[Rfam]
RNA sequence: UUUGCGUCCCUGAAGCUACCUCCUCCCAGGCUUCAUGGACGUUCCGCAGGGGCUACCUCCUCCCAGGCCCCACGGAGAAAAAGCGCCCGCCGGUACCUCCUCCCACCGGCGGGCGUUUUA
Numbered sequence: 001u002u003u004g005c006g007u008c009c010c011u012g013a014a015g016c017u018a019c020c021u022c023c024u025c026c027c028a029g030g031c032u033u034c035a036u037g038g039a040c041g042u043u044c045c046g047c048a049g050g051g052g053c054u055a056c057c058u059c060c061u062c063c064c065a066g067g068c069c070c071c072a073c074g075g076a077g078a079a080a081a082a083g084c085g086c087c088c089g090c091c092g093g094u095a096c097c098u099c100c101u102c103c104c105a106c107c108g109g110c111g112g113g114c115g116u117u118u119u120a
Base pairs, nucleotide, nucleotide: 007039008038009037011035012034013033014032015031016030017029044075045074046073049070050069051068053066084115085114086113087112088111089110090109091108092107093106094105